[Rfam]
RNA: Archaeal RNase P
RNA sequence: GAGAGAGGAUGAGCGGCUGUCGGUAGGCUCAUGUUUUUGAGCUGGCUGAGGAAAGUCCCCCCACCACCUGGAUGCACGAACACCAGAAGGUGUAGGGCGAGAGUCCUGGCACUGGCACAGAAACGAUACGACAUCGGGUCAAUGCAAUGAUGCAGAAAUGCUGAGGUCGCCCGAAUGUUGAUGAAACGGCGAAUCCUCGUGGGUGCAAGCCAAUCUGGGUAGAUGAUGAGUCCAGCAGAUACCCAAGUAGUGCGCAUAGACAGAUGCCGCUUAAAACAGAAGGGGGCUUACUAUCCUCACUC
Numbered sequence: 001g002a003g004a005g006a007g008g009a010u011g012a013g014c015g016g017c018u019g020u021c022g023g024u025a026g027g028c029u030c031a032u033g034u035u036u037u038u039g040a041g042c043u044g045g046c047u048g049a050g051g052a053a054a055g056u057c058c059c060c061c062c063a064c065c066a067c068c069u070g071g072a073u074g075c076a077c078g079a080a081c082a083c084c085a086g087a088a089g090g091u092g093u094a095g096g097g098c099g100a101g102a103g104u105c106c107u108g109g110c111a112c113u114g115g116c117a118c119a120g121a122a123a124c125g126a127u128a129c130g131a132c133a134u135c136g137g138g139u140c141a142a143u144g145c146a147a148u149g150a151u152g153c154a155g156a157a158a159u160g161c162u163g164a165g166g167u168c169g170c171c172c173g174a175a176u177g178u179u180g181a182u183g184a185a186a187c188g189g190c191g192a193a194u195c196c197u198c199g200u201g202g203g204u205g206c207a208a209g210c211c212a213a214u215c216u217g218g219g220u221a222g223a224u225g226a227u228g229a230g231u232c233c234a235g236c237a238g239a240u241a242c243c244c245a246a247g248u249a250g251u252g253c254g255c256a257u258a259g260a261c262a263g264a265u266g267c268c269g270c271u272u273a274a275a276a277c278a279g280a281a282g283g284g285g286g287c288u289u290a291c292u293a294u295c296c297u298c299a300c301u302c
Base pairs, nucleotide, nucleotide: 001302002301003300005298006297007296008295009294011291012271013270014269015268016267017266021048022047023046024045053289054288055287057286058285059284060283061282062205063204064203065202068235069234070233071232072231075201076200077199078198079197080093081092082091083090084089094107095106096105097104098103108196109195113192115190116189129180130179131178132177133176134174135173136172137171138170139169152161153160209253210252211250217244218243219242220241221240